[Rfam]
RNA sequence: CCAUUAAGUGACGAUGUUGCUGACGGAGUACCACGUCAUCACGCCUUGUCACAGACAUCUCAUCACCACAUCAUCACCUUCAAUGAUGUGACAAUGAUGUGUUAAUGACAAGGUGCGAUGACGUGGUACUUCGUCUGCCACAUCAUCAUUGUUGAC
Numbered sequence: 001c002c003a004u005u006a007a008g009u010g011a012c013g014a015u016g017u018u019g020c021u022g023a024c025g026g027a028g029u030a031c032c033a034c035g036u037c038a039u040c041a042c043g044c045c046u047u048g049u050c051a052c053a054g055a056c057a058u059c060u061c062a063u064c065a066c067c068a069c070a071u072c073a074u075c076a077c078c079u080u081c082a083a084u085g086a087u088g089u090g091a092c093a094a095u096g097a098u099g100u101g102u103u104a105a106u107g108a109c110a111a112g113g114u115g116c117g118a119u120g121a122c123g124u125g126g127u128a129c130u131u132c133g134u135c136u137g138c139c140a141c142a143u144c145a146u147c148a149u150u151g152u153u154g155a156c
Stems, first nucleotide, its partner, number of pairs: 004155003007150005013144005019138002022135019042115005048109004054103005070087005
RNA: MIR4371 microRNA precursor family
Organism: Glycine max